[Rfam]
The record is an 84-nucleotide RNA from Saccoglossus kowalevskii, which matches "mir-46/mir-47/mir-281 microRNA precursor family" in Rfam. It is one of the family's seed sequences. The organism belongs to Saccoglossus, within Eukaryota. Gene Ontology terms of the family: miRNA-mediated post-transcriptional gene silencing and RISC complex.
RNA sequence: GCUCCUUGUUGGCGAGGGGAGCAUCGCCAGCGACGGUAUGGCACAAUACGCUGUCAUGGAGUUGCUCUCUUAAUCGCAAGGUAG
Numbered sequence: 001g002c003u004c005c006u007u008g009u010u011g012g013c014g015a016g017g018g019g020a021g022c023a024u025c026g027c028c029a030g031c032g033a034c035g036g037u038a039u040g041g042c043a044c045a046a047u048a049c050g051c052u053g054u055c056a057u058g059g060a061g062u063u064g065c066u067c068u069c070u071u072a073a074u075c076g077c078a079a080g081g082u083a084g
Stems, first nucleotide, its partner, number of pairs: 015071004020066003027059003032055003036051002